The record is a 298-nucleotide sequence from Absidia repens, which matches "Metazoan signal recognition particle RNA" in Rfam. The family is grouped with related families in Rfam's "SRP clan". The literature on the family includes a 2002 paper in Curr Opin Struct Biol by Wild et al., "Towards the structure of the mammalian signal recognition particle". The base pairs follow the family's consensus structure, which is taken from published work.

RNA sequence: ACUGGAAAGCGUGACGACUUUCUGUAAGCUGAGUGGCGGUCUUUGAAGGGAUGAAUUCAUUCAUUGGUGGAAUAACGGUUAUUGGGUUGCCUUGUAGAAGGUAGUGUCUUACAGAGUAUGGUGUCAACAUUCGAGUCUGAGCGUAGGCUCUGGGCGCGGAGGUUGUUCAAUAUCGAGGUAAUGCCCGAGGGUAGUAAUACAGCAGGGAAAACUCGAAGCACUGGUACGGCUGUGAGAUGGCACACUGGAGAGGAUUUAUCGAAUAAUUGCCAUCAAGAAUGGGAACUACCCCUUUUUU
Numbered sequence: 001a002c003u004g005g006a007a008a009g010c011g012u013g014a015c016g017a018c019u020u021u022c023u024g025u026a027a028g029c030u031g032a033g034u035g036g037c038g039g040u041c042u043u044u045g046a047a048g049g050g051a052u053g054a055a056u057u058c059a060u061u062c063a064u065u066g067g068u069g070g071a072a073u074a075a076c077g078g079u080u081a082u083u084g085g086g087u088u089g090c091c092u093u094g095u096a097g098a099a100g101g102u103a104g105u106g107u108c109u110u111a112c113a114g115a116g117u118a119u120g121g122u123g124u125c126a127a128c129a130u131u132c133g134a135g136u137c138u139g140a141g142c143g144u145a146g147g148c149u150c151u152g153g154g155c156g157c158g159g160a161g162g163u164u165g166u167u168c169a170a171u172a173u174c175g176a177g178g179u180a181a182u183g184c185c186c187g188a189g190g191g192u193a194g195u196a197a198u199a200c201a202g203c204a205g206g207g208a209a210a211a212c213u214c215g216a217a218g219c220a221c222u223g224g225u226a227c228g229g230c231u232g233u234g235a236g237a238u239g240g241c242a243c244a245c246u247g248g249a250g251a252g253g254a255u256u257u258a259u260c261g262a263a264u265a266a267u268u269g270c271c272a273u274c275a276a277g278a279a280u281g282g283g284a285a286c287u288a289c290c291c292c293u294u295u296u297u298u
Stems, first nucleotide, its partner, number of pairs: 001040003004023006028037003045295006052288002056285003060281001062277001064276007076269008086260001090253004095248001100246003104243004108236007116227003119223006125165004130160004135155005140149003166172001173216005182209001184207003191200003